The record is a 24-nucleotide RNA sequence from Oscillochloris trichoides, which matches "CRISPR RNA direct repeat element" in Rfam.
[Rfam]
RNA sequence: GGCGAAGGCCGCCUGCGCGGCCUA
Numbered sequence: 001g002g003c004g005a006a007g008g009c010c011g012c013c014u015g016c017g018c019g020g021c022c023u024a
Stems, first nucleotide, its partner, number of pairs: 006023007
Rfam 15.1 lists 331 matches to the family in 38 species.
NCBI's taxonomy places the organism under Bacteria, Bacillati, Chloroflexineae, Oscillochloris, Oscillochloris trichoides.